[Rfam]
RNA sequence: GGGUGCACUGAUAGCCAGUGCAGGGUUCAGGUGAAGGUCGGGCCGCCUUCCG
Numbered sequence: 001g002g003g004u005g006c007a008c009u010g011a012u013a014g015c016c017a018g019u020g021c022a023g024g025g026u027u028c029a030g031g032u033g034a035a036g037g038u039c040g041g042g043c044c045g046c047c048u049u050c051c052g
Stems, first nucleotide, its partner, number of pairs: 005021006032052002034049001036047003
Shown here is a 52-nucleotide sequence from Holophaga foetida, a member of the family "nhaA-I RNA". Rfam's curators put it in the seed alignment. The family's consensus secondary structure is taken from published work. Rfam's curators write: Acidobacteria, Alphaproteobacteria, Betaproteobacteria and Gammaproteobacteria, Verrucomicrobia, cand. division NC10. The source organism's lineage runs through Bacteria, Pseudomonadati, Holophagales, Holophagaceae and Holophaga foetida.